Rfam assigns this 61-nucleotide sequence from Aotus nancymaae to the family "U7 small nuclear RNA". The organism belongs to Aotus, within Eukaryota. The family's consensus secondary structure was predicted with PFOLD.

[Rfam]
RNA sequence: CCGUGCCUGGCCUCUUUUAUAAUUUAUCUAGUAGGUUUUCUGGUUUUCAAGGGAAACCACU
Numbered sequence: 001c002c003g004u005g006c007c008u009g010g011c012c013u014c015u016u017u018u019a020u021a022a023u024u025u026a027u028c029u030a031g032u033a034g035g036u037u038u039u040c041u042g043g044u045u046u047u048c049a050a051g052g053g054a055a056a057c058c059a060c061u
Base pairs, nucleotide, nucleotide: 034058035057036056037055038054039053040052041051
Rfam 15.1 lists 10,439 matches to the family in 569 species.